Shown here is a 600-nucleotide part of an RNA from Peltogaster paguri, a member of the family "Eukaryotic small subunit ribosomal RNA". The sequence is in the family's curated seed alignment. For this family Rfam cites "Crystal structure of the ribosome at 5.5 A resolution" (Yusupov et al., Science, 2001). The organism belongs to Peltogaster, within Eukaryota.
RNA sequence: GAUAUGCUUGUCUUAAAGAUUAAGCCAUGCAUGUAUCAGUACAAGCCUUACUAAGGUGAAACCGCGAAUGGCUCAUUAAAUCAGUUAUUAUUUACUGGCCGAGACUGUGAUACAUGGAUAACUGUGGUAAUUCUAGAGCUAAUACAUGCAACCGAGCCUCAGCCCGGCCUCUCGGGGCCGGCGGGGCGCUUUUAUUGGCUGAAAACCGAUGACUGCCUUCUGGCAGUCGUUAUCUGUUGAAUCACAAUAACAUUGUGUGGAUCGUACGGUCUCGCACCGACGACGCGCCUUUCAAAUGUCUGCCCUAUCAGCUCUCGACGGUUAGCUAGUGGCUGACCGUGGCCGUGACGGGUAACGGGGAAUCUGGGUUCGAUUCCGGAGAGGGAGCCUGAGAGACGGCUACCACAUCUAAGGAAGGCAGCAGGCGCGUAACUUACCCACUCCCAGUUCAGGGAGGUAGUGACAAUAAAUACCUUACAGAGGUACCGUUUACCGGUAUCUCUCAAACGGAAUGAGUACAACGUGAAUCCUUUAACGAGGAUCAACUGGAGGGCAAGCCUGGUGCCAGCAGCCGCGGUAAUUCCAGCUCCAGUAGCGUAU
Number, nucleotide and partner (000 for none) at each position: 001g000002a600003u599004a598005u597006g596007c595008u594009u000010g000011u468012c000013u466014u465015a000016a000017a461018g428019a000020u000021u000022a000023a000024g426025c425026c424027a000028u423029g422030c421031a000032u000033g065034u064035a000036u000037c000038a000039g062040u061041a000042c000043a000044a000045g057046c056047c000048u000049u000050a000051c000052u000053a000054a000055g000056g046057u045058g000059a000060a000061a040062c039063c000064g034065c033066g000067a000068a000069u000070g000071g000072c381073u380074c379075a000076u000077u000078a000079a000080a000081u000082c302083a301084g300085u000086u000087a297088u296089u000090a000091u295092u294093u000094a000095c000096u000097g289098g288099c287100c000101g000102a000103g000104a000105c000106u000107g000108u000109g000110a000111u000112a000113c148114a147115u146116g145117g000118a000119u000120a000121a000122c138123u137124g000125u135126g134127g133128u000129a000130a000131u000132u000133c127134u126135a125136g000137a123138g122139c000140u000141a000142a000143u000144a000145c116146a115147u114148g113149c000150a000151a000152c000153c000154g000155a000156g187157c186158c185159u184160c183161a000162g000163c180164c000165c000166g000167g000168c000169c000170u000171c000172u000173c000174g000175g000176g000177g000178c000179c000180g163181g000182c000183g160184g159185g158186g157187c156188g000189c000190u000191u000192u250193u249194a248195u247196u246197g245198g000199c000200u000201g000202a000203a000204a000205a238206c000207c236208g235209a000210u000211g000212a000213c000214u000215g224216c223217c222218u000219u000220c000221u000222g217223g216224c215225a000226g000227u000228c000229g000230u000231u000232a000233u000234c000235u208236g207237u000238u205239g000240a000241a000242u000243c000244a000245c197246a196247a195248u194249a193250a192251c000252a000253u000254u000255g000256u000257g000258u000259g000260g000261a000262u283263c282264g281265u280266a000267c279268g278269g277270u276271c000272u000273c000274g000275c000276a270277c269278c268279g267280a265281c264282g263283a262284c000285g000286c000287g099288c098289c097290u000291u000292u000293c000294a092295a091296a088297u087298g000299u000300c084301u083302g082303c000304c352305c351306u350307a000308u000309c000310a000311g343312c342313u341314c000315u000316c000317g000318a340319c339320g338321g337322u336323u335324a334325g333326c000327u000328a000329g000330u000331g000332g000333c325334u324335g323336a322337c321338c320339g319340u318341g313342g312343c311344c000345g000346u000347g000348a000349c000350g306351g305352g304353u000354a000355a000356c378357g377358g376359g375360g371361a370362a369363u368364c000365u000366g000367g000368g363369u362370u361371c360372g000373a000374u000375u359376c358377c357378g356379g074380a073381g072382a000383g404384g403385g000386a401387g400388c399389c000390u000391g000392a000393g000394a000395g000396a000397c000398g000399g388400c387401u386402a000403c384404c383405a000406c417407a000408u415409c414410u000411a000412a000413g000414g409415a408416a000417g406418g000419c000420a000421g030422c029423a028424g026425g025426c024427g000428c018429g000430u000431a000432a000433c000434u459435u000436a458437c457438c456439c000440a000441c000442u454443c453444c452445c000446a000447g000448u000449u000450c000451a000452g444453g443454g442455a000456g438457g437458u436459a434460g000461u017462g000463a000464c000465a014466a013467u000468a011469a000470a000471u000472a000473c000474c509475u000476u507477a000478c000479a503480g502481a501482g500483g499484u498485a497486c496487c495488g494489u000490u000491u000492a000493c000494c488495g487496g486497u485498a484499u483500c482501u481502c480503u479504c000505a000506a000507a476508c000509g474510g000511a000512a000513u000514g000515a000516g536517u535518a533519c000520a532521a531522c000523g000524u000525g000526a000527a000528u000529c000530c000531u521532u520533u518534a000535a517536c516537g000538a000539g000540g000541a000542u000543c000544a000545a000546c592547u591548g590549g589550a588551g587552g000553g000554c000555a000556a000557g000558c000559c586560u585561g584562g583563u000564g000565c000566c000567a000568g575569c574570a000571g000572c000573c000574g569575c568576g000577g000578u000579a000580a000581u000582u000583c562584c561585a560586g559587c551588u550589c549590c548591a547592g546593u000594a008595g007596c006597g005598u004599a003600u002